Rfam assigns this 37-nucleotide RNA from Chitinophaga pinensis to the family "DUF805b RNA". The sequence is in the family's curated seed alignment.
[Rfam]
RNA sequence: ACAGCGGAAGCCGAAAAGCUGUAGAACAGAGUAGGCA
Number, nucleotide and partner (000 for none) at each position: 001a000002c021003a020004g019005c018006g000007g000008a000009a000010g036011c035012c034013g000014a000015a000016a000017a000018g005019c004020u003021g002022u000023a000024g000025a000026a000027c000028a000029g000030a000031g000032u000033a000034g012035g011036c010037a000